Shown here is a 75-nucleotide RNA sequence from Pogona vitticeps, a member of the family "mir-193 microRNA precursor family". The family's consensus secondary structure was predicted with RNAalifold.

[Rfam]
RNA sequence: GCCCAGAGUCGGGGUUUGGGGGGCAAGAUGCGCUUGUGUUGUGCCCAACUGGCCCACAAAGUCCCUCUUCUGGGG
Numbered sequence: 001g002c003c004c005a006g007a008g009u010c011g012g013g014g015u016u017u018g019g020g021g022g023g024c025a026a027g028a029u030g031c032g033c034u035u036g037u038g039u040u041g042u043g044c045c046c047a048a049c050u051g052g053c054c055c056a057c058a059a060a061g062u063c064c065c066u067c068u069u070c071u072g073g074g075g
Stems, first nucleotide, its partner, number of pairs: 003073006011065003015061003019057001021055004026050002029047002
The source organism's lineage runs through Eukaryota, Eumetazoa, Dipnotetrapodomorpha, Amniota and Pogona.